The family of this 79-nucleotide RNA sequence from Chironomus riparius is "mir-11 microRNA precursor family". Gene Ontology terms of the family: miRNA-mediated post-transcriptional gene silencing, RISC complex and cellular response to gamma radiation.
[Rfam]
RNA sequence: UUUCCUAACGAGAACUUUUUCUGUGACUGCCCUUCACACAAUAAUUGUGGCAUCACAGUCUGAGUUCUUGACUAGGCGA
Numbered sequence: 001u002u003u004c005c006u007a008a009c010g011a012g013a014a015c016u017u018u019u020u021c022u023g024u025g026a027c028u029g030c031c032c033u034u035c036a037c038a039c040a041a042u043a044a045u046u047g048u049g050g051c052a053u054c055a056c057a058g059u060c061u062g063a064g065u066u067c068u069u070g071a072c073u074a075g076g077c078g079a
Base pairs, nucleotide, nucleotide: 004076005075006074009070010069011068012067013066014065015064016063017062021058022057023056024055025054026053031050032049